[Rfam]
RNA sequence: GGCACACAUCCUGCUUUAGAUAGUUCAGGCAGCCAAUGGCGGUUGCCCACUCGACAACGACGUCGU
Numbered sequence: 001g002g003c004a005c006a007c008a009u010c011c012u013g014c015u016u017u018a019g020a021u022a023g024u025u026c027a028g029g030c031a032g033c034c035a036a037u038g039g040c041g042g043u044u045g046c047c048c049a050c051u052c053g054a055c056a057a058c059g060a061c062g063u064c065g066u
Stems, first nucleotide, its partner, number of pairs: 028047007